[Rfam]
The family of this 298-nucleotide RNA from Tigriopus californicus is "Metazoan signal recognition particle RNA". About the family: The signal recognition particle (SRP) is a universally conserved ribonucleoprotein. It scores 244 bits against the family's covariance model.
RNA sequence: GCUGGGGUCCGUGGCGGGCCCUGUAAUCCAAGUGUCUGGGAGGCUGGUGUCUGUGGAUGGUUUGAGGUCAGGGGUUCUGGUGCAUAUUGUGGCAUGUUGAACUGGCGUCCGCACUAAGCCCGGCGUCAAUAUGGACACCUCCGGGGAGCCGGAGGUGGCCAGGUUGUCUGAGGAGGUGCGAAUCGGGCCAGGGGGGAAACCCAGCAGCUCAAAGUACCCGCGGCGGGCAGUAGUGGGUUCGCGCCGGUGAGUGGGCAGUAUGUAGCAGCCUGACCAACAUAAGCGGACUUGACACCCU
Numbered sequence: 001g002c003u004g005g006g007g008u009c010c011g012u013g014g015c016g017g018g019c020c021c022u023g024u025a026a027u028c029c030a031a032g033u034g035u036c037u038g039g040g041a042g043g044c045u046g047g048u049g050u051c052u053g054u055g056g057a058u059g060g061u062u063u064g065a066g067g068u069c070a071g072g073g074g075u076u077c078u079g080g081u082g083c084a085u086a087u088u089g090u091g092g093c094a095u096g097u098u099g100a101a102c103u104g105g106c107g108u109c110c111g112c113a114c115u116a117a118g119c120c121c122g123g124c125g126u127c128a129a130u131a132u133g134g135a136c137a138c139c140u141c142c143g144g145g146g147a148g149c150c151g152g153a154g155g156u157g158g159c160c161a162g163g164u165u166g167u168c169u170g171a172g173g174a175g176g177u178g179c180g181a182a183u184c185g186g187g188c189c190a191g192g193g194g195g196g197a198a199a200c201c202c203a204g205c206a207g208c209u210c211a212a213a214g215u216a217c218c219c220g221c222g223g224c225g226g227g228c229a230g231u232a233g234u235g236g237g238u239u240c241g242c243g244c245c246g247g248u249g250a251g252u253g254g255g256c257a258g259u260a261u262g263u264a265g266c267a268g269c270c271u272g273a274c275c276a277a278c279a280u281a282a283g284c285g286g287a288c289u290u291g292a293c294a295c296c297c298u
Stems, first nucleotide, its partner, number of pairs: 001044003004022008027041003046296006053289001058285002061282002066275007077268003081264009093253003097249001101248008109237002112235005118228005124222003127166004132161003136157009167173002175218005185210004193202003